[Rfam]
RNA sequence: GGUCUUUUACUUUUCGUUCCUUGCUUCCGCUGGACGACCGAGCCAAUUGUGGAAGCUGAUUAAUCCGUAAGGAGCAACUCAAUG
Number, nucleotide and partner (000 for none) at each position: 001g000002g000003u000004c000005u000006u000007u000008u000009a000010c000011u000012u000013u000014u000015c000016g075017u074018u073019c072020c071021u070022u069023g056024c055025u054026u053027c052028c051029g000030c000031u045032g044033g043034a000035c000036g000037a000038c000039c000040g000041a000042g000043c033044c032045a031046a000047u000048u000049g000050u000051g028052g027053a026054a025055g024056c023057u000058g000059a000060u000061u000062a000063a000064u000065c000066c000067g000068u000069a022070a021071g020072g019073a018074g017075c016076a000077a000078c000079u000080c000081a000082a000083u000084g000

Record summary
A member of the RNA family "RpsF leader" from Salinivibrio sp. KP-1, 84 nucleotides long. The organism belongs to Salinivibrio, within Bacteria. Conserved and widely distributed to many bacterial species RNA structure. It precedes operon containing rpsF, which encodes ribosomal protein S6. The motif also precedes operon containing rpsR, which encodes ribosomal protein S18. The RNA was shown to interact with S6:S18 protein dimer in vitro. For this family Rfam cites "S6:S18 ribosomal protein complex interacts with a structural motif present in its own mRNA" (Matelska et al., RNA, 2013). Gene Ontology terms of the family: negative regulation of translation and protein binding. The base pairs follow the family's consensus structure.